[Rfam]
The record is a 107-nucleotide RNA from Pelagimonas phthalicica, which matches "Guanidine-I riboswitch aptamer" in Rfam. From the family's description: This family represents a conserved RNA structure found upstream of the ykkC and yxkD genes in Bacillus subtilis and related genes in other bacteria. Lineage of the source: Bacteria > Pseudomonadati > Alphaproteobacteria > Roseobacteraceae > Pelagimonas.
RNA sequence: CUGCAGGGUGCUUAGGGUUCCGCUGAUAUCAUCAGGUCAGGUCCGAGAAGCGCCACCUUUCCGGCAAAUUCCGGAAAGGCACACGGCGGGCCAAAAUCCCGGGAGGU
Numbered sequence: 001c002u003g004c005a006g007g008g009u010g011c012u013u014a015g016g017g018u019u020c021c022g023c024u025g026a027u028a029u030c031a032u033c034a035g036g037u038c039a040g041g042u043c044c045g046a047g048a049a050g051c052g053c054c055a056c057c058u059u060u061c062c063g064g065c066a067a068a069u070u071c072c073g074g075a076a077a078g079g080c081a082c083a084c085g086g087c088g089g090g091c092c093a094a095a096a097u098c099c100c101g102g103g104a105g106g107u
Base pairs, nucleotide, nucleotide: 007054008053009052010051011050012049015044016043020041021040022038023035024034025033026032027031056079057078058077059076060075061074062073063072064071082102084105088100089099090098